Rfam assigns this 134-nucleotide RNA sequence from Caenorhabditis remanei to the family "Small nucleolar RNA U6-47".
The literature on the family includes a 2006 paper in Nucleic Acids Res by Zemann et al., "Evolution of small nucleolar RNAs in nematodes".
The organism belongs to Caenorhabditis, within Eukaryota.
Rfam links the family to the GO terms nucleolus and RNA processing.
RNA sequence: AAGCAAUGAAGAGUAAUUUGACACGAAAUGGCGUCAUAUCGUUGACACUCCAAAAAAGACUGCAAAUUCCAAUUCGUUUCGGAAUACAGUCCGUCGACGAGAUGGGCGAUCGUCUAAUCUUCUCUCUGAGCUUU
Numbered sequence: 001a002a003g004c005a006a007u008g009a010a011g012a013g014u015a016a017u018u019u020g021a022c023a024c025g026a027a028a029u030g031g032c033g034u035c036a037u038a039u040c041g042u043u044g045a046c047a048c049u050c051c052a053a054a055a056a057a058g059a060c061u062g063c064a065a066a067u068u069c070c071a072a073u074u075c076g077u078u079u080c081g082g083a084a085u086a087c088a089g090u091c092c093g094u095c096g097a098c099g100a101g102a103u104g105g106g107c108g109a110u111c112g113u114c115u116a117a118u119c120u121u122c123u124c125u126c127u128g129a130g131c132u133u134u
Base pairs, nucleotide, nucleotide: 001133002132003131004130